[Rfam]
RNA sequence: CAGAUCAUAUGACGACGAUAGAGAGCACGCUUGUACACAUCCAUGUCCUUGCAUGAAUGCCGACAAACGUGCUCUCUCUCGUUGUCAAUUGAUA
Numbered sequence: 001c002a003g004a005u006c007a008u009a010u011g012a013c014g015a016c017g018a019u020a021g022a023g024a025g026c027a028c029g030c031u032u033g034u035a036c037a038c039a040u041c042c043a044u045g046u047c048c049u050u051g052c053a054u055g056a057a058u059g060c061c062g063a064c065a066a067a068c069g070u071g072c073u074c075u076c077u078c079u080c081g082u083u084g085u086c087a088a089u090u091g092a093u094a
Stems, first nucleotide, its partner, number of pairs: 010087005016081002020077002023074001025072005031066004

Rfam assigns this 94-nucleotide sequence from Durio zibethinus to the family "MIR535 microRNA precursor family". A reference for the family is Zeng et al. (2010), "Conservation and divergence of microRNAs and their functions in Euphorbiaceous plants", Nucleic Acids Res. Pairs were carried over by alignment from the consensus structure, which was predicted with RNAalifold. Rfam links the family to the GO terms RISC complex and miRNA-mediated post-transcriptional gene silencing. A search with the family's covariance model found it, with a score of 72 bits.